[Rfam]
RNA: ZMP/ZTP riboswitch aptamer (pfl RNA motif)
Organism: Nocardioides zhouii
RNA sequence: CUGCUGCCACACGACUGGCGCAGGUGGGCAACCACCAGGGAGUGACGCGCGGGAGCAUCGAACGCCUGGGUGCCCCGA
Numbered sequence: 001c002u003g004c005u006g007c008c009a010c011a012c013g014a015c016u017g018g019c020g021c022a023g024g025u026g027g028g029c030a031a032c033c034a035c036c037a038g039g040g041a042g043u044g045a046c047g048c049g050c051g052g053g054a055g056c057a058u059c060g061a062a063c064g065c066c067u068g069g070g071u072g073c074c075c076c077g078a
Stems, first nucleotide, its partner, number of pairs: 005049003010044003015039002017066004024035004055073005
Dot-bracket structure: ....(((..(((..(([[[[...((((....))))..))..)))..))).....(((((...]]]]..))))).....